[Rfam]
The record is an 80-nucleotide sequence from Scyliorhinus torazame, which matches "mir-132 microRNA precursor family" in Rfam. For this family Rfam cites "The developmental miRNA profiles of zebrafish as determined by small RNA cloning" (Chen et al., Genes Dev, 2005). It scores 82 bits against the family's covariance model.

RNA sequence: UUCCACGGUGACCGUGGCUUUAGAUUGUUACUGUUAAUCUAACCUUAGUAACAGUCUACAGCCAUGGUCGCUGGGGCCGG
Numbered sequence: 001u002u003c004c005a006c007g008g009u010g011a012c013c014g015u016g017g018c019u020u021u022a023g024a025u026u027g028u029u030a031c032u033g034u035u036a037a038u039c040u041a042a043c044c045u046u047a048g049u050a051a052c053a054g055u056c057u058a059c060a061g062c063c064a065u066g067g068u069c070g071c072u073g074g075g076g077c078c079g080g
Stems, first nucleotide, its partner, number of pairs: 012067002015064004023056010